Background: This 139-nucleotide sequence from Desulfosporosinus sp. Sb-LF belongs to the Rfam family "SAM riboswitch aptamer (S box leader)". From the family's description: The SAM riboswitch is found upstream of a number of genes which code for proteins involved in methionine or cysteine biosynthesis in Gram-positive bacteria.

Nucleotides: 139
Base pairs, nucleotide, nucleotide: 001139002138003137004136005135006134007133008132013041015040016039017038021031022030023029025101027099028098042093043092044091045090047089048088050085051084052083053082054081055080097131102128103127104126105125106124107123
Number, partner (000 for none) and nucleotide at each position: 001139c002138u003137c004136u005135u006134a007133u008132c009000u010000g011000g012000a013041g014000u015040g016039g017038u018000g019000g020000a021031g022030g023029g024000a025101c026000u027099g028098g029023c030022c031021c032000a033000a034000u035000g036000a037000a038017a039016c040015c041013c042093g043092g044091c045090a046000a047089c048088c049000a050085g051084c052083c053082g054081u055080u056000a057000a058000c059000u060000c061000u062000u063000g064000c065000g066000u067000u068000u069000u070000g071000a072000u073000g074000c075000a076000a077000g078000g079000a080055a081054g082053c083052g084051g085050u086000a087000u088048g089047g090045u091044g092043c093042u094000a095000a096000u097131u098028c099027c100000u101025g102128c103127a104126g105125a106124a107123g108000a109000c110000a111000g112000u113000u114000a115000u116000a117000a118000u119000g120000a121000u122000u123107c124106u125105u126104c127103u128102g129000a130000u131097a132008g133007a134006u135005a136004a137003g138002a139001g